[Rfam]
RNA sequence: UGAUGGUGGUCAGGGCAAUCAAAGAGCAUACACUUAAACCUUUCUCAAGCUUCGUACAAAUUCUCACUAUUUUUCUGCCUGAAAUUCAAAAUUUCACUCCUUAAUCG
Numbered sequence: 001u002g003a004u005g006g007u008g009g010u011c012a013g014g015g016c017a018a019u020c021a022a023a024g025a026g027c028a029u030a031c032a033c034u035u036a037a038a039c040c041u042u043u044c045u046c047a048a049g050c051u052u053c054g055u056a057c058a059a060a061u062u063c064u065c066a067c068u069a070u071u072u073u074u075c076u077g078c079c080u081g082a083a084a085u086u087c088a089a090a091a092u093u094u095c096a097c098u099c100c101u102u103a104a105u106c107g
Base pairs, nucleotide, nucleotide: 001107003105004104005102006101058073060071
Dot-bracket structure: (.((((...................................................(.(..........).)...........................)).)).)